Background: This 53-nucleotide RNA sequence from Papaver somniferum belongs to the Rfam family "Plastid-atpF group II-D1 intron". Gene Ontology term of the family: Group II intron splicing. Plastid atpF is a non-coding RNA (ncRNA) recognised in plastids. It has been reported in the intron group II-D1 region of ATP synthase (atpF) genes. A search with the family's covariance model found it, with a score of 67 bits.
RNA sequence: GGCAAUUUUUUCGAUAUAAAACACUCAUAUCGAUAAAACGAUUUGAACCUGUU
Numbered sequence: 001g002g003c004a005a006u007u008u009u010u011u012c013g014a015u016a017u018a019a020a021a022c023a024c025u026c027a028u029a030u031c032g033a034u035a036a037a038a039c040g041a042u043u044u045g046a047a048c049c050u051g052u053u
Stems, first nucleotide, its partner, number of pairs: 011033007